Record summary:
This 77-nucleotide sequence from Enhydra lutris belongs to the Rfam family "mir-296 microRNA precursor family". Rfam links the family to the GO terms miRNA-mediated post-transcriptional gene silencing and RISC complex. It scores 85 bits against the family's covariance model. NCBI's taxonomy places the organism under Eukaryota, Eumetazoa, Vertebrata, Gnathostomata, Enhydra lutris.
RNA sequence: AGGGCUCUUCCGGAGGCCCCCCCCAAUCCUGUUGUGCCGGAUUCAGAGGGUUGGGCGGAGGCUUUCCUGAAGGGCUC
Numbered sequence: 001a002g003g004g005c006u007c008u009u010c011c012g013g014a015g016g017c018c019c020c021c022c023c024c025a026a027u028c029c030u031g032u033u034g035u036g037c038c039g040g041a042u043u044c045a046g047a048g049g050g051u052u053g054g055g056c057g058g059a060g061g062c063u064u065u066c067c068u069g070a071a072g073g074g075c076u077c
Stems, first nucleotide, its partner, number of pairs: 006073005013066002015063004020058002022055009032046003